[Rfam]
RNA sequence: UGCCUUUCGCCUUCACCGGUGACUUUGGUGAUGUGCUUCCAACUAAGGCACGCGGUGAAUGCCAAAGGCA
Numbered sequence: 001u002g003c004c005u006u007u008c009g010c011c012u013u014c015a016c017c018g019g020u021g022a023c024u025u026u027g028g029u030g031a032u033g034u035g036c037u038u039c040c041a042a043c044u045a046a047g048g049c050a051c052g053c054g055g056u057g058a059a060u061g062c063c064a065a066a067g068g069c070a
Stems, first nucleotide, its partner, number of pairs: 003068004009062002012059005019053003023048007
RNA: mir-124 microRNA precursor family
Organism: Steinernema hermaphroditum